[Rfam]
RNA sequence: CCUGCGGUCAGACGGAAAGACCCCAUGAACCUUUACUAUAGCUUUGCGCUGGCACUUGUGUCGGCAUGUGCAGGAUAGGUGGUAGGCUUUGAAGCCGGGACGCCAGUCUCGGUGGAGCCGCAAGAUGAGAUACCACCCUUAUCGUCAUAGGUGUCUAACCGCGAUGUAACAGCAUCCGGGACAGCGCAUGGUGGGUAGUUUGACUGGGGCGGUCGCCUCCCAAAGAGUAACGGAGGCGCGCGAUGGUGGGCUCAGGACGGUCGGAAAUCGUCCGCUGAGUGCAAUGGCAUAAGCCUGCCUGACUGCGAGACUGACAAGUCGAGCAGAGACGAAAGUCGGUCAUAGUGAUCCGGUGGUCCCGCGUGGAAGGGCCAUCGCUCAACGAAUAAAAGGUACUCUGGGGAUAACAGGCUGAUACUGCCCAAGAGUCCAUAUCGACGGCAGUGUUUGGCACCUCGAUGUCGGCUCAUCACAUCCUGGGGCUGGAGCAGGUCCCAAGGGUAUGGCUGUUCGCCAUUUAAAGUGGUACGUGAGCUGGGUUCAGAACGUCGUGAGACAGUUCGGUCCCUAUCUGCCGUGGGUGUA
Numbered sequence: 001c002c003u004g005c006g007g008u009c010a011g012a013c014g015g016a017a018a019g020a021c022c023c024c025a026u027g028a029a030c031c032u033u034u035a036c037u038a039u040a041g042c043u044u045u046g047c048g049c050u051g052g053c054a055c056u057u058g059u060g061u062c063g064g065c066a067u068g069u070g071c072a073g074g075a076u077a078g079g080u081g082g083u084a085g086g087c088u089u090u091g092a093a094g095c096c097g098g099g100a101c102g103c104c105a106g107u108c109u110c111g112g113u114g115g116a117g118c119c120g121c122a123a124g125a126u127g128a129g130a131u132a133c134c135a136c137c138c139u140u141a142u143c144g145u146c147a148u149a150g151g152u153g154u155c156u157a158a159c160c161g162c163g164a165u166g167u168a169a170c171a172g173c174a175u176c177c178g179g180g181a182c183a184g185c186g187c188a189u190g191g192u193g194g195g196u197a198g199u200u201u202g203a204c205u206g207g208g209g210c211g212g213u214c215g216c217c218u219c220c221c222a223a224a225g226a227g228u229a230a231c232g233g234a235g236g237c238g239c240g241c242g243a244u245g246g247u248g249g250g251c252u253c254a255g256g257a258c259g260g261u262c263g264g265a266a267a268u269c270g271u272c273c274g275c276u277g278a279g280u281g282c283a284a285u286g287g288c289a290u291a292a293g294c295c296u297g298c299c300u301g302a303c304u305g306c307g308a309g310a311c312u313g314a315c316a317a318g319u320c321g322a323g324c325a326g327a328g329a330c331g332a333a334a335g336u337c338g339g340u341c342a343u344a345g346u347g348a349u350c351c352g353g354u355g356g357u358c359c360c361g362c363g364u365g366g367a368a369g370g371g372c373c374a375u376c377g378c379u380c381a382a383c384g385a386a387u388a389a390a391a392g393g394u395a396c397u398c399u400g401g402g403g404a405u406a407a408c409a410g411g412c413u414g415a416u417a418c419u420g421c422c423c424a425a426g427a428g429u430c431c432a433u434a435u436c437g438a439c440g441g442c443a444g445u446g447u448u449u450g451g452c453a454c455c456u457c458g459a460u461g462u463c464g465g466c467u468c469a470u471c472a473c474a475u476c477c478u479g480g481g482g483c484u485g486g487a488g489c490a491g492g493u494c495c496c497a498a499g500g501g502u503a504u505g506g507c508u509g510u511u512c513g514c515c516a517u518u519u520a521a522a523g524u525g526g527u528a529c530g531u532g533a534g535c536u537g538g539g540u541u542c543a544g545a546a547c548g549u550c551g552u553g554a555g556a557c558a559g560u561u562c563g564g565u566c567c568c569u570a571u572c573u574g575c576c577g578u579g580g581g582u583g584u585a
Stems, first nucleotide, its partner, number of pairs: 001581008010573003014568002022402004027398002029394005035199004042191002045188004051155010062144003066140001068138001078137005085119003094113008159179003163176004202214004215237006238383001240340002246298006252278002255273006279288002303326004309320003328337003351377007359370002411452003415449001416446007426436002463538001464536004468530001469527005476501002479496006503517005544562004548557003
Rfam assigns this 585-nucleotide part of an RNA from Devosia sp. Root413D1 to the family "Bacterial large subunit ribosomal RNA". The source organism's lineage runs through Bacteria, Pseudomonadati, Alphaproteobacteria, Devosiaceae and Devosia. The match comes from Rfam's covariance-model search (2709 bits).